[Rfam]
RNA sequence: CUCUUCUUCUUUCUCUCCCAACCCUUGUACCAGUGUCAGUUGUAACACCUACUGGUACAGAGGAUGGAAGGGGAAG
Numbered sequence: 001c002u003c004u005u006c007u008u009c010u011u012u013c014u015c016u017c018c019c020a021a022c023c024c025u026u027g028u029a030c031c032a033g034u035g036u037c038a039g040u041u042g043u044a045a046c047a048c049c050u051a052c053u054g055g056u057a058c059a060g061a062g063g064a065u066g067g068a069a070g071g072g073g074a075a076g
Stems, first nucleotide, its partner, number of pairs: 010075003014071002016068003023060001026059007
mir-150 microRNA precursor family: a 76-nucleotide RNA sequence from Ophiophagus hannah.
Taxonomically the source falls in Ophiophagus (Eukaryota, Amniota, Bifurcata, Unidentata).
On this family, see Murchison et al., Genome Res 2008: "Conservation of small RNA pathways in platypus".
The family's consensus secondary structure was predicted with RNAalifold.
Its family is annotated with RISC complex and miRNA-mediated post-transcriptional gene silencing in the Gene Ontology.